[Rfam]
Background
This 160-nucleotide RNA sequence from Laceyella tengchongensis belongs to the Rfam family "SAM riboswitch aptamer (S box leader)". A search with the family's covariance model found it, with a score of 69 bits.

RNA sequence: CUCUCAUCAAGAGCCGGCGGAGGGACGAGCCCGAUGAAGCCCAGCAACCGACCGUAAUGCCAUCGCGAGAUGGGGCGCCCGAUAAGAUCAGGGAGCCGUGGUCCAUAACCACGAAGGCACGGUGCUAAUUCUUGCAGCGAAAUCAGCUGAGAGAUGGGAG
Numbered sequence: 001c002u003c004u005c006a007u008c009a010a011g012a013g014c015c016g017g018c019g020g021a022g023g024g025a026c027g028a029g030c031c032c033g034a035u036g037a038a039g040c041c042c043a044g045c046a047a048c049c050g051a052c053c054g055u056a057a058u059g060c061c062a063u064c065g066c067g068a069g070a071u072g073g074g075g076c077g078c079c080c081g082a083u084a085a086g087a088u089c090a091g092g093g094a095g096c097c098g099u100g101g102u103c104c105a106u107a108a109c110c111a112c113g114a115a116g117g118c119a120c121g122g123u124g125c126u127a128a129u130u131c132u133u134g135c136a137g138c139g140a141a142a143u144c145a146g147c148u149g150a151g152a153g154a155u156g157g158g159a160g
Stems, first nucleotide, its partner, number of pairs: 001160008013042001016041003022032003026134004043126004048122002050118001052116001130152001135149004
The family's consensus secondary structure is taken from published work. Rfam's curators write: The SAM riboswitch is found upstream of a number of genes which code for proteins involved in methionine or cysteine biosynthesis in Gram-positive bacteria.